[Rfam]
RNA sequence: AUGGAAGAAGCCGAAAAUCCUAGAUAAAGUAGGCA
Numbered sequence: 001a002u003g004g005a006a007g008a009a010g011c012c013g014a015a016a017a018u019c020c021u022a023g024a025u026a027a028a029g030u031a032g033g034c035a
Stems, first nucleotide, its partner, number of pairs: 003020003010034003

The record is a 35-nucleotide RNA sequence from Prevotella sp. tc2-28, which matches "DUF805b RNA" in Rfam. The family's consensus secondary structure is taken from published work. By type it is a cis-regulatory element. The source organism's lineage runs through Bacteria, Bacteroidota, Bacteroidia, Prevotellaceae and Prevotella.